[Rfam]
RNA sequence: GGCGCGGCUAGGGCGACGGCCCGAACAUCCGGCACCGCACCGGACCGCCGCGCCGACCUUUCACGCGG
Numbered sequence: 001g002g003c004g005c006g007g008c009u010a011g012g013g014c015g016a017c018g019g020c021c022c023g024a025a026c027a028u029c030c031g032g033c034a035c036c037g038c039a040c041c042g043g044a045c046c047g048c049c050g051c052g053c054c055g056a057c058c059u060u061u062c063a064c065g066c067g068g
Stems, first nucleotide, its partner, number of pairs: 001054008011022004028044005035068004